[Rfam]
RNA sequence: AUCGGGUGUAACAGCAACUCCAUGUGGACUGUGCUCGGAUUCCAGUGGAGCUGCUGUUACUUCUGAU
Numbered sequence: 001a002u003c004g005g006g007u008g009u010a011a012c013a014g015c016a017a018c019u020c021c022a023u024g025u026g027g028a029c030u031g032u033g034c035u036c037g038g039a040u041u042c043c044a045g046u047g048g049a050g051c052u053g054c055u056g057u058u059a060c061u062u063c064u065g066a067u
Base pairs, nucleotide, nucleotide: 002066003065004064008060009059010058011057012056013055014054015053018050019049020048021047022046023045025044026043027042
The record is a 67-nucleotide RNA sequence from Mus musculus, which matches "mir-194 microRNA precursor family" in Rfam. A reference for the family is Lagos-Quintana et al. (2003), "New microRNAs from mouse and human", RNA.